IMES-5 RNA: a 148-nucleotide RNA.
RNA sequence: ACUUAGUGGAAAACUUAACAACUCGAGACGGUAAGAAGGAAACUAAGGAGUAGAAGAAGAAGGGUGAAAAGAUGAAAGAAAUUUCACCACAUGCAGGGAAAGGGUAACUCGCCUGCACUAGAAAACCCACUAGACCCCUUCAACUUCG
Numbered sequence: 001a002c003u004u005a006g007u008g009g010a011a012a013a014c015u016u017a018a019c020a021a022c023u024c025g026a027g028a029c030g031g032u033a034a035g036a037a038g039g040a041a042a043c044u045a046a047g048g049a050g051u052a053g054a055a056g057a058a059g060a061a062g063g064g065u066g067a068a069a070a071g072a073u074g075a076a077a078g079a080a081a082u083u084u085c086a087c088c089a090c091a092u093g094c095a096g097g098g099a100a101a102g103g104g105u106a107a108c109u110c111g112c113c114u115g116c117a118c119u120a121g122a123a124a125a126c127c128c129a130c131u132a133g134a135c136c137c138c139u140u141c142a143a144c145u146u147c148g
Base pairs, nucleotide, nucleotide: 002047003046004045005044006043007042014035015034016033017032019030053147054146055145056144059141060140061139062138063137064136073086074085075084076083077082092117093116094115095114096113097112098110099109118133119132120131121130